[Rfam]
RNA: Bacillaceae-1 RNA
Organism: Solibacillus sp. R5-41
RNA sequence: AGGAAGGGAACAAAGGCUAAACCCGUCACGUCCUGUGGCAACGCCUGAGUGACCAACAUCGUGUUGG
Numbered sequence: 001a002g003g004a005a006g007g008g009a010a011c012a013a014a015g016g017c018u019a020a021a022c023c024c025g026u027c028a029c030g031u032c033c034u035g036u037g038g039c040a041a042c043g044c045c046u047g048a049g050u051g052a053c054c055a056a057c058a059u060c061g062u063g064u065u066g067g
Stems, first nucleotide, its partner, number of pairs: 011049001014046004025039005053067005
Dot-bracket structure: ..........(..((((.......(((((.....)))))...))))..)...(((((.....)))))